[Rfam]
RNA sequence: GGGAGGGACUCCUGUCGCAGGAGAGAUGGCGCCUAGUCGCCUACUCCCAUCAUUUUACUUUCAAUUGAUUUGAUGACAAGUAAGCUUCAUCUCUCCUCGACUGAAGCCCCUUUCAAU
Numbered sequence: 001g002g003g004a005g006g007g008a009c010u011c012c013u014g015u016c017g018c019a020g021g022a023g024a025g026a027u028g029g030c031g032c033c034u035a036g037u038c039g040c041c042u043a044c045u046c047c048c049a050u051c052a053u054u055u056u057a058c059u060u061u062c063a064a065u066u067g068a069u070u071u072g073a074u075g076a077c078a079a080g081u082a083a084g085c086u087u088c089a090u091c092u093c094u095c096c097u098c099g100a101c102u103g104a105a106g107c108c109c110c111u112u113u114c115a116a117u
Base pairs, nucleotide, nucleotide: 005109006108007107009106010105012103014101015100016099017098019097020096021095023093024092025091026090027089028088029087